RNA sequence: AUUGAACCCGAACGAAGUGGGUAGCCUUCUUGGGUUGGGAAAGUCCCCGGGCCGUCUACCGCAGAGAUGCGGCGCCCGGAAAGGUGGUUUUCGAGUUUGAGUGGUUUUCCUAUCACCUCUGGUGAGGGGCAAAGACCAGCGUGGAACCCUUCAAGAAACCCCCAAUGCAAUGGCCGAAUCACAGUUAUUCACUUGAUCCAAUCAAAUCGGAUUAACAGAACGGGGCUUACGAUCGGGUUCUA
Numbered sequence: 001a002u003u004g005a006a007c008c009c010g011a012a013c014g015a016a017g018u019g020g021g022u023a024g025c026c027u028u029c030u031u032g033g034g035u036u037g038g039g040a041a042a043g044u045c046c047c048c049g050g051g052c053c054g055u056c057u058a059c060c061g062c063a064g065a066g067a068u069g070c071g072g073c074g075c076c077c078g079g080a081a082a083g084g085u086g087g088u089u090u091u092c093g094a095g096u097u098u099g100a101g102u103g104g105u106u107u108u109c110c111u112a113u114c115a116c117c118u119c120u121g122g123u124g125a126g127g128g129g130c131a132a133a134g135a136c137c138a139g140c141g142u143g144g145a146a147c148c149c150u151u152c153a154a155g156a157a158a159c160c161c162c163c164a165a166u167g168c169a170a171u172g173g174c175c176g177a178a179u180c181a182c183a184g185u186u187a188u189u190c191a192c193u194u195g196a197u198c199c200a201a202u203c204a205a206a207u208c209g210g211a212u213u214a215a216c217a218g219a220a221c222g223g224g225g226c227u228u229a230c231g232a233u234c235g236g237g238u239u240c241u242a
Base pairs, nucleotide, nucleotide: 002242004240005239006238007237008236009235010234011233015194016193017192018191019190020189022037023036024035025034026033027032041228042227043226045225046224047223048222060071061070062069063068073086074085075084076083089158090157091156098153099152100151101150103148107146108145109144110143119139120138121137122136196212197211198210199209201207
The family of this 242-nucleotide RNA from Cocos nucifera is "RNase MRP". A search with the family's covariance model found it, with a score of 66 bits. Rfam describes the family as follows. RNase MRP is an enzymatically active ribonucleoprotein with two distinct roles in eukaryotes. In mitochondria it plays a direct role in the initiation of mitochondrial DNA replication. The family is grouped with related families in Rfam's "RNaseP clan". Rfam 15.1 lists 3,510 matches to the family in 2,315 species. By type it is a ribozyme.